[Rfam]
RNA sequence: CCGGCGGUCAGAUAUGUUUGAUAUUCUUGGUUGUGUUUUCAAUCAACCAGAUAUCAGACAUAUUAUUACCGACGG
Numbered sequence: 001c002c003g004g005c006g007g008u009c010a011g012a013u014a015u016g017u018u019u020g021a022u023a024u025u026c027u028u029g030g031u032u033g034u035g036u037u038u039u040c041a042a043u044c045a046a047c048c049a050g051a052u053a054u055c056a057g058a059c060a061u062a063u064u065a066u067u068a069c070c071g072a073c074g075g
Stems, first nucleotide, its partner, number of pairs: 005071004011064015029048005
Shown here is a 75-nucleotide sequence from Amphibalanus amphitrite, a member of the family "mir-190 microRNA precursor family". The base pairs follow the family's consensus structure, which was predicted with RNAalifold. Taxonomically the source falls in Amphibalanus (Eukaryota, Arthropoda, Balanidae, Amphibalaninae). A search with the family's covariance model found it, with a score of 71 bits. Clan: mir-50 clan.